[Rfam]
RNA sequence: CAUGGAUUUAUGUUAUAUUCCAUCUCUUGCACACUGGACUAUGUUCUGCUGGCUUCAGGCUGGUGUGCAGGGGGUGGAAUACAUCAUUGAAUCAUG
Numbered sequence: 001c002a003u004g005g006a007u008u009u010a011u012g013u014u015a016u017a018u019u020c021c022a023u024c025u026c027u028u029g030c031a032c033a034c035u036g037g038a039c040u041a042u043g044u045u046c047u048g049c050u051g052g053c054u055u056c057a058g059g060c061u062g063g064u065g066u067g068c069a070g071g072g073g074g075u076g077g078a079a080u081a082c083a084u085c086a087u088u089g090a091a092u093c094a095u096g
Stems, first nucleotide, its partner, number of pairs: 001096005007090002010087003014083001016081022039058001

Rfam assigns this 96-nucleotide RNA from Durio zibethinus to the family "MIR2950 microRNA precursor family". The source organism's lineage runs through Eukaryota, Spermatophyta, Magnoliopsida, Malvaceae and Durio. Rfam 15.1 lists 60 matches to the family in 34 species. A search with the family's covariance model found it, with a score of 83 bits.